A member of the RNA family "Guanidine-II riboswitch aptamer (mini-ykkC)" from Rhodothalassium salexigens, 49 nucleotides long. Its family is annotated with regulation of gene expression in the Gene Ontology. The base pairs follow the family's consensus structure, which is taken from published work.
RNA sequence: GCCCGGGGACGACCCCGGCGCGUUGGCAAAUCGGAUGGGGACGACCCCA
Numbered sequence: 001g002c003c004c005g006g007g008g009a010c011g012a013c014c015c016c017g018g019c020g021c022g023u024u025g026g027c028a029a030a031u032c033g034g035a036u037g038g039g040g041a042c043g044a045c046c047c048c049a
Stems, first nucleotide, its partner, number of pairs: 003018006036049005
Source information:
The organism belongs to Rhodothalassium salexigens, within Bacteria.